[Rfam]
RNA: drum RNA
RNA sequence: AAGCUGUGAAGUAUUAGGGUGUACCGGAAUGCACUAUUAUACAGAGCUUUCAGGAAGGGUUGUGCAGUGUUACCUCAAACCGGAGUAGAUAUUUUAUCUUAGUCGAAAGAAAAUGCACUAA
Numbered sequence: 001a002a003g004c005u006g007u008g009a010a011g012u013a014u015u016a017g018g019g020u021g022u023a024c025c026g027g028a029a030u031g032c033a034c035u036a037u038u039a040u041a042c043a044g045a046g047c048u049u050u051c052a053g054g055a056a057g058g059g060u061u062g063u064g065c066a067g068u069g070u071u072a073c074c075u076c077a078a079a080c081c082g083g084a085g086u087a088g089a090u091a092u093u094u095u096a097u098c099u100u101a102g103u104c105g106a107a108a109g110a111a112a113a114u115g116c117a118c119u120a121a
Stems, first nucleotide, its partner, number of pairs: 001049004011042004016037001018035005024083004064116003088104003